A member of the RNA family "tpke11" from Pectobacterium atrosepticum, 75 nucleotides long. A reference for the family is Rivas et al. (2001), "Computational identification of noncoding RNAs in E. coli by comparative genomics", Curr Biol. A search with the family's covariance model found it, with a score of 65 bits. The base pairs follow the family's consensus structure, which was predicted with WAR.

RNA sequence: UAUUGCUGGCAAUCAGCACGGGCGUCGAGGAAACUCUGCGCCCGUGCACGCAUGUUGAAGGGCAGGAAAAGAAAU
Numbered sequence: 001u002a003u004u005g006c007u008g009g010c011a012a013u014c015a016g017c018a019c020g021g022g023c024g025u026c027g028a029g030g031a032a033a034c035u036c037u038g039c040g041c042c043c044g045u046g047c048a049c050g051c052a053u054g055u056u057g058a059a060g061g062g063c064a065g066g067a068a069a070a071g072a073a074a075u
Base pairs, nucleotide, nucleotide: 002013016047017046018045019044020043021042022041023040024039027036028035029034